[Rfam]
RNA sequence: CUGACGGCCGCGUUCGGGUCACUUGCGGACUGCAACACCCGAUCUCGCUCCGUACCACGCGCGACGUGGUGGAGGGGGAGCGCGUCACCGUCAG
Numbered sequence: 001c002u003g004a005c006g007g008c009c010g011c012g013u014u015c016g017g018g019u020c021a022c023u024u025g026c027g028g029a030c031u032g033c034a035a036c037a038c039c040c041g042a043u044c045u046c047g048c049u050c051c052g053u054a055c056c057a058c059g060c061g062c063g064a065c066g067u068g069g070u071g072g073a074g075g076g077g078g079a080g081c082g083c084g085u086c087a088c089c090g091u092c093a094g
Stems, first nucleotide, its partner, number of pairs: 001094005009084005015041004023035005043079004048074006
RNA: L4-Archaeoglobi ribosomal protein leades